Shown here is a 117-nucleotide RNA sequence from Cytobacillus solani, a member of the family "RNA Staph. aureus E (RoxS)". Lineage of the source: Bacteria > Bacillota > Caryophanales > Bacillaceae > Cytobacillus. The family's consensus secondary structure is taken from published work. About the family: It was shown to be regulated by the presence of nitric oxide (NO). In Bacillus subtilis it controls expression of genes with functions related to oxidative stress and oxidation-reduction reactions and it was renamed RoxS (for related to oxidative stress).
RNA sequence: AUGAAGUUGAUCACAAACAAACAUUAACCCCUUUGUUUGGGCCGUGAAAAAUUUCUCCCAUCCCCUUUGUUCGAUAAAAAAGAAAAAAGACCAUGCUGACGAAGGCAUGGUCUUUUU
Numbered sequence: 001a002u003g004a005a006g007u008u009g010a011u012c013a014c015a016a017a018c019a020a021a022c023a024u025u026a027a028c029c030c031c032u033u034u035g036u037u038u039g040g041g042c043c044g045u046g047a048a049a050a051a052u053u054u055c056u057c058c059c060a061u062c063c064c065c066u067u068u069g070u071u072c073g074a075u076a077a078a079a080a081a082g083a084a085a086a087a088a089g090a091c092c093a094u095g096c097u098g099a100c101g102a103a104g105g106c107a108u109g110g111u112c113u114u115u116u117u
Stems, first nucleotide, its partner, number of pairs: 003055006011047004018039006071083001075081001087114011